RNA: Makes More Granules Regulator RNA (mmgR)
RNA sequence: CGGCAUUGCCUUUCAGGCAUCCUCUCCCAAACUUUUCAAGCCCGGCCGGCAACGGUCGGGUUUUUCUUUGUCGGCG
Number, nucleotide and partner (000 for none) at each position: 001c000002g000003g000004c000005a000006u000007u000008g018009c017010c016011u015012u000013u000014c000015a011016g010017g009018c008019a000020u000021c000022c000023u000024c000025u000026c000027c000028c000029a000030a000031a000032c000033u000034u000035u000036u000037c000038a000039a000040g061041c060042c059043c058044g057045g056046c055047c054048g053049g000050c000051a000052a000053c048054g047055g046056u045057c044058g043059g042060g041061u040062u000063u000064u000065u000066c000067u000068u000069u000070g000071u000072c000073g000074g000075c000076g000